This 183-nucleotide sequence from Pseudomonas pohangensis belongs to the Rfam family "Pseudomonas sRNA P27".

Nucleotides: 183
Stems, first nucleotide, its partner, number of pairs: 002156002005153003011147004022047001026045002029042003033038001053085005058078002061075004089143003094138004104133009
Number, partner (000 for none) and nucleotide at each position: 001000g002156g003155g004000u005153u006152u007151u008000a009000c010000u011147c012146c013145u014144g015000g016000u017000u018000u019000u020000a021000c022047c023000g024000u025000u026045c027044g028000c029042u030041c031040c032000a033038c034000c035000g036000g037000g038033g039000c040031g041030g042029a043000a044027c045026g046000a047022g048000a049000u050000u051000u052000u053085g054084g055083u056082g057081u058078c059077u060000a061075a062074u063073u064072c065000g066000a067000u068000u069000a070000a071000c072064g073063a074062a075061u076000c077059g078058g079000g080000a081057g082056c083055a084054c085053c086000u087000c088000u089143g090142c091141g092000u093000a094138g095137g096136c097135u098000u099000u100000a101000a102000g103000u104133u105132u106131u107130a108129a109128g110127a111126c112125u113000u114000g115000c116000g117000u118000c119000g120000c121000c122000u123000a124000c125112g126111g127110u128109c129108u130107u131106g132105g133104a134000u135097a136096g137095c138094c139000c140000c141091c142090g143089c144014c145013a146012g147011g148000c149000a150000g151007g152006g153005a154000c155003c156002c157000c158000a159000a160000u161000c162000u163000u164000u165000u166000a167000a168000c169000g170000a171000a172000g173000g174000c175000u176000a177000c178000a179000a180000g181000c182000c183000u
Pairs were carried over by alignment from the consensus structure, which was predicted with WAR. A reference for the family is Livny et al. (2006), "Identification of 17 Pseudomonas aeruginosa sRNAs and prediction of sRNA-encoding genes in 10 diverse pathogens using the bioinformatic tool sRNAPredict2", Nucleic Acids Res. It is annotated as a small RNA.